[Rfam]
RNA sequence: CACGUCAGUGCGCUUUGCUGACGUGGUAACAAAUCGCGUCCUCGAGGGGGCGAUUUGUUGCCACGUCAGCAAAGCGCGCUGACGUGG
Numbered sequence: 001c002a003c004g005u006c007a008g009u010g011c012g013c014u015u016u017g018c019u020g021a022c023g024u025g026g027u028a029a030c031a032a033a034u035c036g037c038g039u040c041c042u043c044g045a046g047g048g049g050g051c052g053a054u055u056u057g058u059u060g061c062c063a064c065g066u067c068a069g070c071a072a073a074g075c076g077c078g079c080u081g082a083c084g085u086g087g
Base pairs, nucleotide, nucleotide: 001086002085003084004083005082006081007080008079009078010077011076012075013074014073015072016071017070018069019068020067021066023064024063025062026061027060028059029058030057031056032055033054034053035052036051037050040047041046
MIR7486 microRNA precursor family: an 87-nucleotide RNA sequence from Gossypium raimondii. The base pairs follow the family's consensus structure, which was predicted with RNAalifold. The source organism's lineage runs through Eukaryota, Tracheophyta, Malvaceae, Malvoideae and Gossypium. The match comes from Rfam's covariance-model search (99 bits).